A member of the RNA family "U4atac minor spliceosomal RNA" from Pseudolycoriella hygida, 124 nucleotides long. The family's consensus secondary structure is taken from published work. About the family: U4atac is an essential component of the minor U12-type spliceosome complex which is required for removal of the rarer class of eukaryotic introns (AT-AC, U12-type). Its Rfam clan is "U4 clan". The organism belongs to Pseudolycoriella, within Eukaryota.
[Rfam]
RNA sequence: UCAAUCCUUGUUUUGGGGAGCAAAAUGUUCAGUGAACGUAUAGUGAGGACAUUGUUGCUGACAAACAAUUAAAUAAACCCCUGUCUGAGACUUCAUUGAAGUUUUGGGCGGAAUUUUUGGACGG
Number, nucleotide and partner (000 for none) at each position: 001u000002c000003a000004a000005u019006c018007c017008u016009u015010g000011u000012u000013u000014u000015g009016g008017g007018g006019a005020g058021c057022a056023a055024a053025a052026u051027g050028u049029u048030c047031a000032g000033u000034g000035a000036a044037c043038g000039u000040a000041u000042a000043g037044u036045g000046a000047g030048g029049a028050c027051a026052u025053u024054g000055u023056u022057g021058c020059u000060g000061a000062c000063a000064a000065a000066c000067a000068a000069u000070u000071a000072a000073a000074u000075a000076a000077a000078c000079c000080c000081c111082u110083g109084u108085c107086u106087g000088a000089g103090a102091c101092u100093u099094c098095a000096u000097u000098g094099a093100a092101g091102u090103u089104u000105u000106g086107g085108g084109c083110g082111g081112a000113a000114u000115u000116u000117u000118u000119g000120g000121a000122c000123g000124g000